[Rfam]
This 112-nucleotide sequence from Shouchella clausii belongs to the Rfam family "PyrR binding site". The literature on the family includes a 2001 paper in Nucleic Acids Res by Bonner et al., "Molecular recognition of pyr mRNA by the Bacillus subtilis attenuation regulatory protein PyrR".

RNA sequence: ACCCUCUUUAAACGCAGUCCAGUGAGGCUGGCAAGAGGACCGAAACGCACGCUGUUUUUUGCCUGCGCUUCUUUCUUGCCGCCUCCUGUGCUUGCACAGGAGGUUUUUUAUU
Numbered sequence: 001a002c003c004c005u006c007u008u009u010a011a012a013c014g015c016a017g018u019c020c021a022g023u024g025a026g027g028c029u030g031g032c033a034a035g036a037g038g039a040c041c042g043a044a045a046c047g048c049a050c051g052c053u054g055u056u057u058u059u060u061g062c063c064u065g066c067g068c069u070u071c072u073u074u075c076u077u078g079c080c081g082c083c084u085c086c087u088g089u090g091c092u093u094g095c096a097c098a099g100g101a102g103g104u105u106u107u108u109u110a111u112u
Stems, first nucleotide, its partner, number of pairs: 003038006015030005043074003047070001050067003054063001056061001078107001081104010